[Rfam]
RNA sequence: CUGGUUGUAGGGGUACAGUGAUCAGGUUACGAAGGAUUUCUCUAGUAACAACCCCGUAGCUUGAUCACCAUCUCCCUAUGACUCA
Numbered sequence: 001c002u003g004g005u006u007g008u009a010g011g012g013g014u015a016c017a018g019u020g021a022u023c024a025g026g027u028u029a030c031g032a033a034g035g036a037u038u039u040c041u042c043u044a045g046u047a048a049c050a051a052c053c054c055c056g057u058a059g060c061u062u063g064a065u066c067a068c069c070a071u072c073u074c075c076c077u078a079u080g081a082c083u084c085a
Stems, first nucleotide, its partner, number of pairs: 003083011015071001018068014034053002

The record is an 85-nucleotide RNA from Ophiophagus hannah, which matches "mir-1329 microRNA precursor family" in Rfam. The base pairs follow the family's consensus structure, which was predicted with RNAalifold. Rfam 15.1 lists 351 matches to the family in 347 species. It is one of the family's seed sequences. Lineage of the source: Eukaryota > Metazoa > Chordata > Sauria > Ophiophagus.